Record summary:
Rfam assigns this 141-nucleotide RNA sequence from Phreatobacter aquaticus to the family "Alphaproteobacterial sRNA BjrC1505". NCBI's taxonomy places the organism under Bacteria, Pseudomonadati, Alphaproteobacteria, Phreatobacteraceae, Phreatobacter. A reference for the family is Madhugiri et al. (2012), "Small RNAs of the Bradyrhizobium/Rhodopseudomonas lineage and their analysis", RNA Biol. A search with the family's covariance model found it, with a score of 88 bits.
RNA sequence: GCCGUGGUUAACGCAGAGUUAACCUUUCCAGAUUAUCACUGGAUACGUUCGGCUUUGCCGGACGCGAGUGGGUCCUGUCCACUUGUUUGACGCCUCCCUGUUAAAUCGACUUCAGGGCCGCCUUCGGGCGGCCCUUUUUUC
Number, nucleotide and partner (000 for none) at each position: 001g000002c042003c041004g040005u000006g000007g000008u000009u000010a000011a000012c000013g000014c000015a000016g036017a000018g000019u000020u035021a034022a033023c000024c031025u030026u000027u000028c000029c000030a025031g024032a000033u022034u021035a020036u016037c000038a000039c000040u004041g003042g002043a000044u000045a000046c000047g063048u062049u061050c060051g000052g000053c000054u000055u000056u000057g000058c000059c000060g050061g049062a048063c047064g000065c000066g000067a083068g082069u081070g080071g079072g000073u000074c000075c000076u000077g000078u000079c071080c070081a069082c068083u067084u000085g000086u000087u000088u000089g102090a101091c100092g099093c000094c000095u000096c000097c000098c000099u092100g091101u090102u089103a000104a000105a000106u000107c000108g000109a000110c000111u000112u000113c000114a135115g134116g133117g132118c131119c130120g129121c128122c127123u000124u000125c000126g000127g122128g121129c120130g119131g118132c117133c116134c115135u114136u000137u000138u000139u000140u000141c000